drum RNA: a 111-nucleotide sequence. Rfam's curators put it in the seed alignment. About the family: Firmicutes, Bacteroidetes (1 example), Proteobacteria (2 examples), Spirochaetes (2 examples). Rfam classes the family as a small RNA.

[Rfam]
RNA sequence: AAGCGUUGAUCUGAGAGAGUGUGUCAGCAGGCAUUGGCUCAGGGAGCUUCUCCGGAGGAGUUGGGUCGAAAACCUCAAGCUGACUAGCGAAAGCGAAAGAAAACACCAAUA
Numbered sequence: 001a002a003g004c005g006u007u008g009a010u011c012u013g014a015g016a017g018a019g020u021g022u023g024u025c026a027g028c029a030g031g032c033a034u035u036g037g038c039u040c041a042g043g044g045a046g047c048u049u050c051u052c053c054g055g056a057g058g059a060g061u062u063g064g065g066u067c068g069a070a071a072a073c074c075u076c077a078a079g080c081u082g083a084c085u086a087g088c089g090a091a092a093g094c095g096a097a098a099g100a101a102a103a104c105a106c107c108a109a110u111a
Stems, first nucleotide, its partner, number of pairs: 001049004011042005018035005024083004065106002068104001087094002